[Rfam]
RNA sequence: UCCCACCGGGGCGCGGCACUCCACUUUAUGCCCCGCUCCGGCAAAAGAAAAGGAGGAAUACCCGCCCUGACCGGCGGUGCGGCAGUGUGGAGACCUGCCGUAACGUGCGCGAAGCCGCACGAGGCUGUUCCAUGCGGAGGCAGAGCAGCCACGGUCAUAUCAUCAUGGCA
Dot-bracket structure: .....((((((((.((((..........)))).))))))))....................[[[[..((((((]]]]((((((((.((....))))))))))..(((((......)))))..((((((((..(((....))))))))))).)))))).............
Numbered sequence: 001u002c003c004c005a006c007c008g009g010g011g012c013g014c015g016g017c018a019c020u021c022c023a024c025u026u027u028a029u030g031c032c033c034c035g036c037u038c039c040g041g042c043a044a045a046a047g048a049a050a051a052g053g054a055g056g057a058a059u060a061c062c063c064g065c066c067c068u069g070a071c072c073g074g075c076g077g078u079g080c081g082g083c084a085g086u087g088u089g090g091a092g093a094c095c096u097g098c099c100g101u102a103a104c105g106u107g108c109g110c111g112a113a114g115c116c117g118c119a120c121g122a123g124g125c126u127g128u129u130c131c132a133u134g135c136g137g138a139g140g141c142a143g144a145g146c147a148g149c150c151a152c153g154g155u156c157a158u159a160u161c162a163u164c165a166u167g168g169c170a
Stems, first nucleotide, its partner, number of pairs: 006041008015032004062077004068157006078102008087094002105120005123150008133142003
Annotation:
malK-I RNA: a 170-nucleotide RNA. Pairs were carried over by alignment from the consensus structure, which is taken from published work.